[Rfam]
RNA sequence: GGGGGCAGAUGGGUGCUGGUGUGCCCUGCGGUCUUCAAAACCGUUGCAGGUAGUGAUUGCUGCCUGGGUGGGUUCGAUUCCCACAUGCUCCC
Numbered sequence: 001g002g003g004g005g006c007a008g009a010u011g012g013g014u015g016c017u018g019g020u021g022u023g024c025c026c027u028g029c030g031g032u033c034u035u036c037a038a039a040a041c042c043g044u045u046g047c048a049g050g051u052a053g054u055g056a057u058u059g060c061u062g063c064c065u066g067g068g069u070g071g072g073u074u075c076g077a078u079u080c081c082c083a084c085a086u087g088c089u090c091c092c
Stems, first nucleotide, its partner, number of pairs: 001092007008084001011026006028044005047066005069083004
Record summary:
This 92-nucleotide RNA from Hydrogenoanaerobacterium saccharovorans belongs to the Rfam family "Selenocysteine transfer RNA". The organism belongs to Hydrogenoanaerobacterium, within Bacteria. Its family is annotated with triplet codon-amino acid adaptor activity in the Gene Ontology.